[Rfam]
RNA sequence: UUCUGGAUGAUGAAGAAAAUCAAUCGGAUUCCCAUUGAUUCUAAAAUAUGAUUUUAACAACCAGCUACUUCUGACAAAA
Numbered sequence: 001u002u003c004u005g006g007a008u009g010a011u012g013a014a015g016a017a018a019a020u021c022a023a024u025c026g027g028a029u030u031c032c033c034a035u036u037g038a039u040u041c042u043a044a045a046a047u048a049u050g051a052u053u054u055u056a057a058c059a060a061c062c063a064g065c066u067a068c069u070u071c072u073g074a075c076a077a078a079a
Base pairs, nucleotide, nucleotide: 001079002078004076005075